[Rfam]
Nucleotides: 089
Stems, first nucleotide, its partner, number of pairs: 017071006024064002028060005034055004
Number, partner (000 for none) and nucleotide at each position: 001000a002000u003000g004000u005000g006000a007000c008000c009000u010000g011000u012000g013000g014000a015000c016000u017071u018070c019069c020068c021067u022066u023000u024064g025063u026000c027000a028060u029059c030058c031057u032056a033000u034055g035054c036053c037052u038000g039000g040000g041000a042000a043000u044000a045000u046000a047000u048000g049000a050000a051000g052037g053036g054035g055034c056032u057031g058030g059029g060028a061000a062000u063025g064024c065000a066022a067021a068020g069019g070018g071017a072000u073000g074000u075000u076000c077000a078000a079000u080000a081000g082000u083000u084000a085000c086000c087000a088000g089000u
This 89-nucleotide RNA from Chiloscyllium punctatum belongs to the Rfam family "mir-204 microRNA precursor family". Rfam links the family to the GO terms RISC complex and miRNA-mediated post-transcriptional gene silencing. A reference for the family is Chen et al. (2005), "The developmental miRNA profiles of zebrafish as determined by small RNA cloning", Genes Dev. The match comes from Rfam's covariance-model search (98 bits).